[Rfam]
RNA sequence: GCCCGAGCCUGGGUCUUUGCGGGCAAGCUGAGUCGUGUAUCCCGUCAACUGGCCUACAAAGUCCCAGUUUUGGGC
Numbered sequence: 001g002c003c004c005g006a007g008c009c010u011g012g013g014u015c016u017u018u019g020c021g022g023g024c025a026a027g028c029u030g031a032g033u034c035g036u037g038u039a040u041c042c043c044g045u046c047a048a049c050u051g052g053c054c055u056a057c058a059a060a061g062u063c064c065c066a067g068u069u070u071u072g073g074g075c
Stems, first nucleotide, its partner, number of pairs: 003073005010066004015061005021055004026050002029047002
Shown here is a 75-nucleotide sequence from Scleropages formosus, a member of the family "mir-193 microRNA precursor family". The base pairs follow the family's consensus structure, which was predicted with RNAalifold. It scores 67 bits against the family's covariance model. Rfam links the family to the GO terms RISC complex and miRNA-mediated post-transcriptional gene silencing. The source organism's lineage runs through Eukaryota, Bilateria, Actinopteri, Neopterygii and Scleropages.